[Rfam]
RNA sequence: GCGUUCGAGCGAUCGCUGCACUCUCGAUUCGUCGAAGUAGUGCAGAGGAAAGUCCAUGCUCGCACAGUCUGAAAUGUCUGUAGUGUUCGUGCCUGACGAAACAAUAAGUCAGGGUAGGUGAAAGCCUAACGGCAGAGAAAUGACCUACGUCCAAAUUGGAUAUGGUUCUUAUGCUCUUGAAAGUGCCACAGUGACGGAGUCCAUUUGGAAACAAAUGGAGUGGAACGAGGUAAACCCCACGAGCGAGAAACCCAAAUUAUGGUAGGGGCGCUCUCCAGAAGGAAAAAAACAGACGGAGAGGCAUCGGUUGACCGAUGCAGAUAGAUGAUCGCUGCUACAGCACGAGGGUUGUACCCGUUUGCAGUGCUUUAGAACAGAACAUGGCUUACAGGA
Numbered sequence: 001g002c003g004u005u006c007g008a009g010c011g012a013u014c015g016c017u018g019c020a021c022u023c024u025c026g027a028u029u030c031g032u033c034g035a036a037g038u039a040g041u042g043c044a045g046a047g048g049a050a051a052g053u054c055c056a057u058g059c060u061c062g063c064a065c066a067g068u069c070u071g072a073a074a075u076g077u078c079u080g081u082a083g084u085g086u087u088c089g090u091g092c093c094u095g096a097c098g099a100a101a102c103a104a105u106a107a108g109u110c111a112g113g114g115u116a117g118g119u120g121a122a123a124g125c126c127u128a129a130c131g132g133c134a135g136a137g138a139a140a141u142g143a144c145c146u147a148c149g150u151c152c153a154a155a156u157u158g159g160a161u162a163u164g165g166u167u168c169u170u171a172u173g174c175u176c177u178u179g180a181a182a183g184u185g186c187c188a189c190a191g192u193g194a195c196g197g198a199g200u201c202c203a204u205u206u207g208g209a210a211a212c213a214a215a216u217g218g219a220g221u222g223g224a225a226c227g228a229g230g231u232a233a234a235c236c237c238c239a240c241g242a243g244c245g246a247g248a249a250a251c252c253c254a255a256a257u258u259a260u261g262g263u264a265g266g267g268g269c270g271c272u273c274u275c276c277a278g279a280a281g282g283a284a285a286a287a288a289a290c291a292g293a294c295g296g297a298g299a300g301g302c303a304u305c306g307g308u309u310g311a312c313c314g315a316u317g318c319a320g321a322u323a324g325a326u327g328a329u330c331g332c333u334g335c336u337a338c339a340g341c342a343c344g345a346g347g348g349u350u351g352u353a354c355c356c357g358u359u360u361g362c363a364g365u366g367c368u369u370u371a372g373a374a375c376a377g378a379a380c381a382u383g384g385c386u387u388a389c390a391g392g393a
Stems, first nucleotide, its partner, number of pairs: 004393003007389001008333007016045006050387003054384005059247005064081004069076001087242005092113006114130001115128005131237002134177004142167004149161005183235002185231003200219008251267003271300006301318006335372003339368005
RNA: Bacterial RNase P class B